RNA sequence: UCGAGACUCCUGGACCCGAAACCGAAUACGACCGAUAAACUGGCCUCGGACCACGCCGGGCGCAGCUCCCGGCCGGUUCGACAUUGAUCAGCCAGCAGCCGCUGCAACCACAGGGAG
Numbered sequence: 001u002c003g004a005g006a007c008u009c010c011u012g013g014a015c016c017c018g019a020a021a022c023c024g025a026a027u028a029c030g031a032c033c034g035a036u037a038a039a040c041u042g043g044c045c046u047c048g049g050a051c052c053a054c055g056c057c058g059g060g061c062g063c064a065g066c067u068c069c070c071g072g073c074c075g076g077u078u079c080g081a082c083a084u085u086g087a088u089c090a091g092c093c094a095g096c097a098g099c100c101g102c103u104g105c106a107a108c109c110a111c112a113g114g115g116a117g
Stems, first nucleotide, its partner, number of pairs: 048079005056072005093104004
Notes: Shown here is a 117-nucleotide RNA sequence, a member of the family "Streptomyces-metK RNA". Pairs were carried over by alignment from the consensus structure, which is taken from published work.